Annotation
The family of this 279-nucleotide sequence from Nannospalax galili is "Mason-Pfizer monkey virus packaging signal". The source organism's lineage runs through Eukaryota, Gnathostomata, Glires, Spalacidae and Nannospalax.
[Rfam]
RNA sequence: UGGUGGCCAAUGUGGGGCUGGAUACUGAGGGCACAUCAUGAGGGAGACGAUGGAGGAAAAGGAGUGCACUUGCUAAAUCUCAAGGAAUUUGGAGACGCGCCGCAGGAGCCUGCCGCGACUGAACCGAAAAUAAGUCAAUCCGUCCGAUUAUGGGGCAAGAAUUGAGCCAACACCAGAUUUAUGUUAAACAAUUGAAGGAGGCUUUAAAGACACGAGGAGUAAAGGCCAGGACUGCAGAUUUAUUUAAGUUUUUUGAUUUCAUUAAGGACACUUGUCCCU
Numbered sequence: 001u002g003g004u005g006g007c008c009a010a011u012g013u014g015g016g017g018c019u020g021g022a023u024a025c026u027g028a029g030g031g032c033a034c035a036u037c038a039u040g041a042g043g044g045a046g047a048c049g050a051u052g053g054a055g056g057a058a059a060a061g062g063a064g065u066g067c068a069c070u071u072g073c074u075a076a077a078u079c080u081c082a083a084g085g086a087a088u089u090u091g092g093a094g095a096c097g098c099g100c101c102g103c104a105g106g107a108g109c110c111u112g113c114c115g116c117g118a119c120u121g122a123a124c125c126g127a128a129a130a131u132a133a134g135u136c137a138a139u140c141c142g143u144c145c146g147a148u149u150a151u152g153g154g155g156c157a158a159g160a161a162u163u164g165a166g167c168c169a170a171c172a173c174c175a176g177a178u179u180u181a182u183g184u185u186a187a188a189c190a191a192u193u194g195a196a197g198g199a200g201g202c203u204u205u206a207a208a209g210a211c212a213c214g215a216g217g218a219g220u221a222a223a224g225g226c227c228a229g230g231a232c233u234g235c236a237g238a239u240u241u242a243u244u245u246a247a248g249u250u251u252u253u254u255g256a257u258u259u260c261a262u263u264a265a266g267g268a269c270a271c272u273u274g275u276c277c278c279u
Base pairs, nucleotide, nucleotide: 007030008029012025013024014023036050037049039047087131088130089128090127096121097120101117102116103115105113139157141155143154144153145152146151163206164205165204166202167201168200213255214254215253216252217251218250219249220248223241224240225239227237264279266277267276268275269274
Dot-bracket structure: ......((...(((........)))...)).....((.(.......).))....................................((((.....((...(((.(.......).)))..)).....)).)).......(.(.((((....))))).).....((((((...............................))).)))......((((((((..(((.(.........).)))......))))))))........(.((((....)))).)